[Rfam]
Rfam assigns this 352-nucleotide part of an RNA from Actinobacillus indolicus to the family "Bacterial small subunit ribosomal RNA".

RNA sequence: GGCGUAAAGGGCACGCAGGCGGUGACUUAAGUGAGAUGUGAAAGCCCCGAGCUUAACUUGGGAAUUGCAUUUCAUACUGGGUCGCUAGAGUAUUUUAGGGAGGGGUAGAAUUCCACGUGUAGCGGUGAAAUGCGUAGAGAUGUGGAGGAAUACCGAAGGCGAAGGCAGCCCCUUGGGAAAAUACUGACGCUCAUGUGCGAAAGCGUGGGGAGCAAACAGGAUUAGAUACCCUGGUAGUCCACGCUGUAAACGCUGUCGAUUUGGGGAUUGGGCUUUAAGCUUGGUGCCCGUAGCUAACGUGAUAAAUCGACCGCCUGGGGAGUACGGCCGCAAGGUUAAAACUCAAAUGAAU
Numbered sequence: 001g002g003c004g005u006a007a008a009g010g011g012c013a014c015g016c017a018g019g020c021g022g023u024g025a026c027u028u029a030a031g032u033g034a035g036a037u038g039u040g041a042a043a044g045c046c047c048c049g050a051g052c053u054u055a056a057c058u059u060g061g062g063a064a065u066u067g068c069a070u071u072u073c074a075u076a077c078u079g080g081g082u083c084g085c086u087a088g089a090g091u092a093u094u095u096u097a098g099g100g101a102g103g104g105g106u107a108g109a110a111u112u113c114c115a116c117g118u119g120u121a122g123c124g125g126u127g128a129a130a131u132g133c134g135u136a137g138a139g140a141u142g143u144g145g146a147g148g149a150a151u152a153c154c155g156a157a158g159g160c161g162a163a164g165g166c167a168g169c170c171c172c173u174u175g176g177g178a179a180a181a182u183a184c185u186g187a188c189g190c191u192c193a194u195g196u197g198c199g200a201a202a203g204c205g206u207g208g209g210g211a212g213c214a215a216a217c218a219g220g221a222u223u224a225g226a227u228a229c230c231c232u233g234g235u236a237g238u239c240c241a242c243g244c245u246g247u248a249a250a251c252g253c254u255g256u257c258g259a260u261u262u263g264g265g266g267a268u269u270g271g272g273c274u275u276u277a278a279g280c281u282u283g284g285u286g287c288c289c290g291u292a293g294c295u296a297a298c299g300u301g302a303u304a305a306a307u308c309g310a311c312c313g314c315c316u317g318g319g320g321a322g323u324a325c326g327g328c329c330g331c332a333a334g335g336u337u338a339a340a341a342c343u344c345a346a347a348u349g350a351a352u
Base pairs, nucleotide, nucleotide: 001315002314003313009312011198012197013196014195018191019190020189022085023084024083025082026081027080028079030078031077032074033073034072035071036070037069038068039067040066046062047061048060049059050058051057089185090184091183093180094179095178096177100174101173102172103171104170105169106168107151111147112146113145114144115143116142117141118140122133123132124131159166160165203244204243205242206241207240208239212238213237217233218232219231220230255311256310257309258308259307260306263289264288265287267285268284269283270282271281272280273279274278293300294299317344318343319342326337327336328335329334